The family of this 120-nucleotide RNA sequence from Thermaerobacillus caldiproteolyticus is "SAM riboswitch aptamer (S box leader)". The match comes from Rfam's covariance-model search (83 bits).

[Rfam]
Nucleotides: 120
Base pairs, nucleotide, nucleotide: 001120002119003118004117005116006115007114008113013042015041016040017039021032022031023030026085027084028083029082043077044076045075046074048073049072051068052067053066054065055064081112086109087108088107089106090105091104092103093102094101
Number, partner (000 for none) and nucleotide at each position: 001120c002119u003118c004117u005116u006115a007114u008113c009000g010000a011000g012000a013042g014000u015041g016040g017039u018000g019000g020000a021032g022031g023030g024000a025000c026085u027084a028083g029082g030023c031022c032021c033000a034000a035000a036000g037000a038000a039017g040016c041015c042013c043077g044076g045075c046074a047000a048073c049072c050000u051068u052067c053066a054065a055064g056000c057000a058000a059000a060000a061000u062000u063000g064055c065054u066053u067052g068051a069000c070000a071000a072049g073048g074046u075045g076044c077043u078000a079000a080000a081112u082029c083028c084027u085026a086109c087108a088107a089106g090105u091104c092103a093102u094101c095000u096000g097000a098000u099000a100000u101094g102093a103092u104091g105090a106089c107088u108087u109086g110000a111000a112081a113008g114007a115006u116005g117004a118003g119002a120001g
Source information
Taxonomically the source falls in Thermaerobacillus (Bacteria, Bacillati, Bacillota, Anoxybacillaceae).